[Rfam]
RNA sequence: AAGAGCAUUGGGUCAAUAAAAACUAAGAAGGUUGAUUCAAGAAAAAA
Dot-bracket structure: .......(.((((((((.............)))))))).).......
Numbered sequence: 001a002a003g004a005g006c007a008u009u010g011g012g013u014c015a016a017u018a019a020a021a022a023c024u025a026a027g028a029a030g031g032u033u034g035a036u037u038c039a040a041g042a043a044a045a046a047a
Stems, first nucleotide, its partner, number of pairs: 008040001010038008